[Rfam]
RNA sequence: GAUGGCAGUGACGACUUGGUAAUAUUCAAGCUCAACAGACCAAAUCACAUGUCAAUCUCUUUAGAUGAGAUUAACCUGUAUGCCGAAUAUCCCGCUGAACUGAGCCAUC
Numbered sequence: 001g002a003u004g005g006c007a008g009u010g011a012c013g014a015c016u017u018g019g020u021a022a023u024a025u026u027c028a029a030g031c032u033c034a035a036c037a038g039a040c041c042a043a044a045u046c047a048c049a050u051g052u053c054a055a056u057c058u059c060u061u062u063a064g065a066u067g068a069g070a071u072u073a074a075c076c077u078g079u080a081u082g083c084c085g086a087a088u089a090u091c092c093c094g095c096u097g098a099a100c101u102g103a104g105c106c107a108u109c
Stems, first nucleotide, its partner, number of pairs: 001109006